[Rfam]
The family of this 136-nucleotide RNA sequence from Pseudomonas syringae is "Pseudomonas sRNA P11". The family's consensus secondary structure was predicted with RNAalifold. The sequence is in the family's curated seed alignment. It is annotated as a non-coding RNA gene. On this family, see Livny et al., Nucleic Acids Res 2006: "Identification of 17 Pseudomonas aeruginosa sRNAs and prediction of sRNA-encoding genes in 10 diverse pathogens using the bioinformatic tool sRNAPredict2".
RNA sequence: AGAUGCGAGUUGGCACAAGCACUGCAUGGUCUCUUGCAGAUAAUUCAUAACACGCAGCCCUCAACGAUGAAGGCUGCGUCUCCCGAGAGAACGGGACCGGACAAAGGCGUCCUCGUCAGGCCACUGACGGGACGCC
Numbered sequence: 001a002g003a004u005g006c007g008a009g010u011u012g013g014c015a016c017a018a019g020c021a022c023u024g025c026a027u028g029g030u031c032u033c034u035u036g037c038a039g040a041u042a043a044u045u046c047a048u049a050a051c052a053c054g055c056a057g058c059c060c061u062c063a064a065c066g067a068u069g070a071a072g073g074c075u076g077c078g079u080c081u082c083c084c085g086a087g088a089g090a091a092c093g094g095g096a097c098c099g100g101a102c103a104a105a106g107g108c109g110u111c112c113u114c115g116u117c118a119g120g121c122c123a124c125u126g127a128c129g130g131g132a133c134g135c136c
Base pairs, nucleotide, nucleotide: 010104011103012102013025014024015023052079053078054077055076056075058073059072061070062069081096082095083094084093085092106136107135108134109133110132111131112130114129115128116127117126118125119124
This small RNA (sRNA) was computationally identified in the genome of the opportunistic pathogen Pseudomonas aeruginosa and its expression verified by northern blot analysis. P11 is located between a putative threonine protein kinase and putative nitrate reductase and appears to be conserved in several Pseudomonas species.